About this RNA
epsC RNA: a 113-nucleotide sequence from Paenibacillus sp. GP183. It scores 100 bits against the family's covariance model. The family's RNA type in Rfam is cis-regulatory element.

[Rfam]
RNA sequence: CGGUGAUGUCUCCUUACCGUUAUCAAUGGAGGCACUCGGUCAUGCUGUGGGUUGAAAUAAACCUUAGACGCAAGUCGUCGAAAGUGUGGAGUUGAGGAAGGGUUGAAAACCCU
Numbered sequence: 001c002g003g004u005g006a007u008g009u010c011u012c013c014u015u016a017c018c019g020u021u022a023u024c025a026a027u028g029g030a031g032g033c034a035c036u037c038g039g040u041c042a043u044g045c046u047g048u049g050g051g052u053u054g055a056a057a058u059a060a061a062c063c064u065u066a067g068a069c070g071c072a073a074g075u076c077g078u079c080g081a082a083a084g085u086g087u088g089g090a091g092u093u094g095a096g097g098a099a100g101g102g103u104u105g106a107a108a109a110c111c112c113u
Base pairs, nucleotide, nucleotide: 001019002018003017004016007034008033009032010031011030012029013028035096036095037094038093040089041088042087043086044085045084046083049064050063051062052061053060067079068078069077070076099113100112101111102110103109